[Rfam]
RNA: A. fumigatus sRNA Afu_254
Organism: Aspergillus udagawae
RNA sequence: UAUCAACUGAACAAUACAAUCUCAAAGCUUAUCUUCCUCAAGCAACCCUUCUUUCACGACCAACUCAAUCAAAAUGACUCCCUGCUCCUGCAACACCUGCAGCUGCUCCAGCGACUGCAACGGCUGCAAGUGCACCUCUUGCGGUGUACGUAUCU
Numbered sequence: 001u002a003u004c005a006a007c008u009g010a011a012c013a014a015u016a017c018a019a020u021c022u023c024a025a026a027g028c029u030u031a032u033c034u035u036c037c038u039c040a041a042g043c044a045a046c047c048c049u050u051c052u053u054u055c056a057c058g059a060c061c062a063a064c065u066c067a068a069u070c071a072a073a074a075u076g077a078c079u080c081c082c083u084g085c086u087c088c089u090g091c092a093a094c095a096c097c098u099g100c101a102g103c104u105g106c107u108c109c110a111g112c113g114a115c116u117g118c119a120a121c122g123g124c125u126g127c128a129a130g131u132g133c134a135c136c137u138c139u140u141g142c143g144g145u146g147u148a149c150g151u152a153u154c155u
Base pairs, nucleotide, nucleotide: 083113084112085111086110097105117142118141119140126133127132